The record is a 100-nucleotide part of an RNA from Methanobrevibacter smithii, which matches "Archaeal large subunit ribosomal RNA" in Rfam.
RNA sequence: GAUGUGGCGCGUAAGGAAUGAAUUCUUCCGAAAGAAUCAGUGGUAACAUUGUAGUAUGAGGAGGUUGGACUAGUGUUGCAUCGUCCGUCUUGAAACACGG
Dot-bracket structure: ((((((((((....((........(((((...(....(((((....))))).....)..))))).....)).))))))))))..((((........))))
Numbered sequence: 001g002a003u004g005u006g007g008c009g010c011g012u013a014a015g016g017a018a019u020g021a022a023u024u025c026u027u028c029c030g031a032a033a034g035a036a037u038c039a040g041u042g043g044u045a046a047c048a049u050u051g052u053a054g055u056a057u058g059a060g061g062a063g064g065u066u067g068g069a070c071u072a073g074u075g076u077u078g079c080a081u082c083g084u085c086c087g088u089c090u091u092g093a094a095a096c097a098c099g100g
Stems, first nucleotide, its partner, number of pairs: 001082010015071002025064005033057001038051005085100004
The sequence is in the family's curated seed alignment. The family's consensus secondary structure is taken from published work.